[Rfam]
RNA sequence: ACCGCUCACGAACAUAGGGACACUGUUCGCGAAAAUUUCGCGAACAAGGUUCGCAAAAUUCGCAAACA
Numbered sequence: 001a002c003c004g005c006u007c008a009c010g011a012a013c014a015u016a017g018g019g020a021c022a023c024u025g026u027u028c029g030c031g032a033a034a035a036u037u038u039c040g041c042g043a044a045c046a047a048g049g050u051u052c053g054c055a056a057a058a059u060u061c062g063c064a065a066a067c068a
Base pairs, nucleotide, nucleotide: 009062010061011060012059018052019051020050021049024046025045026044027043028042029041030040031039032038033037
About this RNA: Shown here is a 68-nucleotide sequence from Nematostella vectensis, a member of the family "mir-9428 microRNA precursor family". The base pairs follow the family's consensus structure, which was predicted with RNAalifold. Rfam links the family to the GO terms miRNA-mediated post-transcriptional gene silencing and RISC complex. The organism belongs to Nematostella, within Eukaryota.